[Rfam]
Nucleotides: 105
Stems, first nucleotide, its partner, number of pairs: 005101001007099003011095010022085001024082007032074006
Number, partner (000 for none) and nucleotide at each position: 001000c002000u003000g004000u005101c006000c007099c008098c009097u010000u011095g012094a013093g014092u015091u016090c017089c018088c019087u020086u021000g022085a023000c024082c025081a026080c027079u028078u029077c030076a031000u032074u033073g034072g035071g036070g037069c038000u039000c040000u041000u042000c043000u044000a045000a046000g047000a048000c049000c050000c051000u052000u053000a054000a055000u056000g057000a058000a059000g060000g061000g062000a063000a064000a065000u066000u067000u068000u069037g070036c071035c072034c073033u074032a075000c076030u077029g078028a079027a080026g081025u082024g083000u084000u085022u086020g087019a088018g089017g090016g091015a092014a093013c094012u095011c096000u097009g098008g099007g100000u101005g102000g103000c104000a105000a
mir-395 microRNA precursor family: a 105-nucleotide sequence from Carpinus fangiana. The family has 25 seed sequences and 2,798 matches in Rfam 15.1. The source organism's lineage runs through Eukaryota, Streptophyta, Magnoliopsida, Betulaceae and Carpinus. The match comes from Rfam's covariance-model search (69 bits). For this family Rfam cites "Computational Identification of Plant MicroRNAs and Their Targets, Including a Stress-Induced miRNA" (Jones-Rhoades and Bartel, Mol Cell, 2004). About the family: mir-395 was identified in both Arabidopsis thaliana and Oryza sativa computationally and was later experimentally verified. mir-395 is thought to target mRNAs coding for ATP sulphurylases. The mature sequence is excised from the 3' arm of the hairpin.